TPP riboswitch aptamer (THI element): a 123-nucleotide RNA from Methylobrevis pamukkalensis. NCBI's taxonomy places the organism under Bacteria, Pseudomonadota, Hyphomicrobiales, Pleomorphomonadaceae, Methylobrevis. It scores 68 bits against the family's covariance model.
RNA sequence: CGCCCGUCCGAGGGGUGUUCUUGAAAAGAACUGAGAUGGCGUCUGGCGCGAAAGCGCCUCAGGCCCGGACCCUUCGAACCUGAUCCGGGUCAUGCCGGCGAAGGGACGGGACGCAAGACGACG
Dot-bracket structure: ......((((((((.((((((.....)))))......((.........................)))..)))).....(((...((((......))))...)))..)))).............